The family of this 266-nucleotide part of an RNA from Sulfodiicoccus acidiphilus is "Archaeal large subunit ribosomal RNA". Taxonomically the source falls in Sulfodiicoccus (Archaea, Thermoproteota, Thermoprotei, Sulfolobales). The family's consensus secondary structure is taken from published work. Rfam links the family to the GO terms structural constituent of ribosome and ribosome.
[Rfam]
RNA sequence: GAGUUCACGUCAGUGGCGAGCUUAAGGGGUUCAACCCCGAAGGCGAAGGGAAACCGAAUGCCCGCAACUCGGCGACGAGUGAGGGGCAGGGUCUGUCAGGGCCUCAAGUCACUGGCGUGAGGCUAGAAACCGGGCGAUCUAGACCGGGGCAGGCCGAAACCAGGGGAAACCCUGGUGGAGGGCCGAAUAGGGGUUCUGACGUGCAAUUCGUUCCCCUGACCCUGGCCUAGGGGCAAAAGACCAAUCUAGCCCGGUGAUAGCUAGUU
Numbered sequence: 001g002a003g004u005u006c007a008c009g010u011c012a013g014u015g016g017c018g019a020g021c022u023u024a025a026g027g028g029g030u031u032c033a034a035c036c037c038c039g040a041a042g043g044c045g046a047a048g049g050g051a052a053a054c055c056g057a058a059u060g061c062c063c064g065c066a067a068c069u070c071g072g073c074g075a076c077g078a079g080u081g082a083g084g085g086g087c088a089g090g091g092u093c094u095g096u097c098a099g100g101g102c103c104u105c106a107a108g109u110c111a112c113u114g115g116c117g118u119g120a121g122g123c124u125a126g127a128a129a130c131c132g133g134g135c136g137a138u139c140u141a142g143a144c145c146g147g148g149g150c151a152g153g154c155c156g157a158a159a160c161c162a163g164g165g166g167a168a169a170c171c172c173u174g175g176u177g178g179a180g181g182g183c184c185g186a187a188u189a190g191g192g193g194u195u196c197u198g199a200c201g202u203g204c205a206a207u208u209c210g211u212u213c214c215c216c217u218g219a220c221c222c223u224g225g226c227c228u229a230g231g232g233g234c235a236a237a238a239g240a241c242c243a244a245u246c247u248a249g250c251c252c253g254g255u256g257a258u259a260g261c262u263a264g265u266u
Stems, first nucleotide, its partner, number of pairs: 005120013020044004026038004048055002060087004067080004090103004123264002126261001130254006139230004144225006150218001152184004159176007190215004196210001198209002232242002